[Rfam]
A member of the RNA family "L31-Actinobacteria ribosomal protein leader" from Pengzhenrongella sicca, 46 nucleotides long. A search with the family's covariance model found it, with a score of 42 bits. The family's RNA type in Rfam is cis-regulatory leader. NCBI's taxonomy places the organism under Bacteria, Actinomycetota, Actinomycetes, Micrococcales, Pengzhenrongella. Its Rfam clan is "Ribosomal Protein L31 Leader clan".
RNA sequence: CCGGUCUCCGGUUCACGUACGCGCGCCGCGCCUGCGACCCGGGGCA
Numbered sequence: 001c002c003g004g005u006c007u008c009c010g011g012u013u014c015a016c017g018u019a020c021g022c023g024c025g026c027c028g029c030g031c032c033u034g035c036g037a038c039c040c041g042g043g044g045c046a
Stems, first nucleotide, its partner, number of pairs: 004045001006044001008042004016036004021031004
Dot-bracket structure: ...(.(.((((....((((.((((...)))).))))..)))).)).